RNA: Small nucleolar RNA SNORA47
Organism: Piprites chloris
RNA sequence: UGGAGGACUGAGAAGGUAGGACAGCUAACCUUCAUGCUGUAUUUUACUGGUUAUAACCUCCAAAAUUAUAAUAGUGCAAUGGCAACUCAUGUUCCCCUCCUGACAUGAGGGAAAGCAGUCCUGCAUUUG
Numbered sequence: 001u002g003g004a005g006g007a008c009u010g011a012g013a014a015g016g017u018a019g020g021a022c023a024g025c026u027a028a029c030c031u032u033c034a035u036g037c038u039g040u041a042u043u044u045u046a047c048u049g050g051u052u053a054u055a056a057c058c059u060c061c062a063a064a065a066u067u068a069u070a071a072u073a074g075u076g077c078a079a080u081g082g083c084a085a086c087u088c089a090u091g092u093u094c095c096c097c098u099c100c101u102g103a104c105a106u107g108a109g110g111g112a113a114a115g116c117a118g119u120c121c122u123g124c125a126u127u128u129g
Base pairs, nucleotide, nucleotide: 002061003060004059005058006057015048016047017046018045019042021040022039023038024037025036081121082120085119086118087117093113095111096110097109100107
Dot-bracket structure: .(((((........(((((.(((((..........))))).)..))))........)))))...................((..(((.....(.(((..(......).))).)...)))))........